Notes:
A member of the RNA family "Archaeal small subunit ribosomal RNA" from Candidatus Methanohalarchaeum thermophilum, 504 nucleotides of a longer RNA. Lineage of the source: Archaea > Methanobacteriati > Methanonatronarchaeia > Methanonatronarchaeales > Candidatus Methanohalarchaeum. Pairs were carried over by alignment from the consensus structure, which is taken from published work.

[Rfam]
RNA sequence: AAUCUGGUUGAUCCUGCCAGAGACCACCGUUAUUGGGAUCCGAUUAAGCCAUGCGAGUUAUGGGUUCUUCGUGAACCCGGCGAACUGCUCAGUAACACGUGGACAACCUACCCUUGGGACUGGGAUAACCCCGGGAAACUGGGGAUAAUACCAGAUAGGCCACAGAUGCUGGAAUGCAUUGUGGCUAAAAUGCUCCCGCGCCCAAGGAUGGGUCUGCGGCCGAUUAGGUUGUUGCUAGGGUAAUGCCCUGGCAAGCCGAUAAUCGGUACGGGCUCUGAGAGGAGGAACCCGGAGACGGACUCUGAGACACGAGUCCGGGCCCUACGGGGCGCAGCAGGCGCGAAACCUUUACAAUGUGCGAAAGCACGAUAAGGGGAUCCCAAGUGCCAGCGCACUGCGUUGGCUGUUCUUCAGCCUAAAAAGCUGAAGGUAGUAAGGGCCGGGCAAGACCGGUGCCAGCCGCCGCGGUAACACCGGCGGCCCAAGUGGUGGUCACUUUUAUUG
Numbered sequence: 001a002a003u004c005u006g007g008u009u010g011a012u013c014c015u016g017c018c019a020g021a022g023a024c025c026a027c028c029g030u031u032a033u034u035g036g037g038a039u040c041c042g043a044u045u046a047a048g049c050c051a052u053g054c055g056a057g058u059u060a061u062g063g064g065u066u067c068u069u070c071g072u073g074a075a076c077c078c079g080g081c082g083a084a085c086u087g088c089u090c091a092g093u094a095a096c097a098c099g100u101g102g103a104c105a106a107c108c109u110a111c112c113c114u115u116g117g118g119a120c121u122g123g124g125a126u127a128a129c130c131c132c133g134g135g136a137a138a139c140u141g142g143g144g145a146u147a148a149u150a151c152c153a154g155a156u157a158g159g160c161c162a163c164a165g166a167u168g169c170u171g172g173a174a175u176g177c178a179u180u181g182u183g184g185c186u187a188a189a190a191u192g193c194u195c196c197c198g199c200g201c202c203c204a205a206g207g208a209u210g211g212g213u214c215u216g217c218g219g220c221c222g223a224u225u226a227g228g229u230u231g232u233u234g235c236u237a238g239g240g241u242a243a244u245g246c247c248c249u250g251g252c253a254a255g256c257c258g259a260u261a262a263u264c265g266g267u268a269c270g271g272g273c274u275c276u277g278a279g280a281g282g283a284g285g286a287a288c289c290c291g292g293a294g295a296c297g298g299a300c301u302c303u304g305a306g307a308c309a310c311g312a313g314u315c316c317g318g319g320c321c322c323u324a325c326g327g328g329g330c331g332c333a334g335c336a337g338g339c340g341c342g343a344a345a346c347c348u349u350u351a352c353a354a355u356g357u358g359c360g361a362a363a364g365c366a367c368g369a370u371a372a373g374g375g376g377a378u379c380c381c382a383a384g385u386g387c388c389a390g391c392g393c394a395c396u397g398c399g400u401u402g403g404c405u406g407u408u409c410u411u412c413a414g415c416c417u418a419a420a421a422a423g424c425u426g427a428a429g430g431u432a433g434u435a436a437g438g439g440c441c442g443g444g445c446a447a448g449a450c451c452g453g454u455g456c457c458a459g460c461c462g463c464c465g466c467g468g469u470a471a472c473a474c475c476g477g478c479g480g481c482c483c484a485a486g487u488g489g490u491g492g493u494c495a496c497u498u499u500u501a502u503u504g
Base pairs, nucleotide, nucleotide: 004020005019006018007017008016022494023493024492025491026490027489028488029487030486031485033383034382035381036380037379038378039377040376041375042341048339049338050337052336053335054334057081058080059079062078063077064076065075066074067073088294089293090292098218099217100216101215102214103213104212107211108210112207113206114205115204116203117202118201120154121153122152123151129144130143131142132141133140134139159185160184161183162182163181164180165179168177169176192199193198220266221265222264227257228256229255232254233253234252235251236250237249238248239247269291270290271289272288273284274283275282276281296317297316298315299314300313301312319330320329321328322327347373349372350371351370355368356367357366358365359364386404387403388402389401390400391399392398393397408433409429410428411427412426413425414424415423437483438482439481440480441479442478450477451476452475453474459466460465